Rfam assigns this 80-nucleotide sequence from Triplophysa rosa to the family "mir-92 microRNA precursor family".
Rfam links the family to the GO terms miRNA-mediated post-transcriptional gene silencing and RISC complex.
Its Rfam clan is "mir-92 microRNA precursor clan".
The base pairs follow the family's consensus structure, which was predicted with PFOLD.
A search with the family's covariance model found it, with a score of 75 bits.
From the family's description: This family represents the microRNA precursor mir-92. Human miR-92 has two predicted hairpin precursor sequences: mir-92-1 on chromosome 13 and mir-92-2 on chromosome X. miR-92 has also been cloned from mouse embryonic stem cells. The mature sequence is excised from the 3' arm of the hairpin.

RNA sequence: CUUUCUGCACAGGGUGGGAUCGGUGGCAAUGCUGAGUGUUUUUGGAAGGUAUUGCACUUGUCCCGGCCUGUAGAGGAUUG
Numbered sequence: 001c002u003u004u005c006u007g008c009a010c011a012g013g014g015u016g017g018g019a020u021c022g023g024u025g026g027c028a029a030u031g032c033u034g035a036g037u038g039u040u041u042u043u044g045g046a047a048g049g050u051a052u053u054g055c056a057c058u059u060g061u062c063c064c065g066g067c068c069u070g071u072a073g074a075g076g077a078u079u080g
Stems, first nucleotide, its partner, number of pairs: 004076003009071005016064005022058003026055008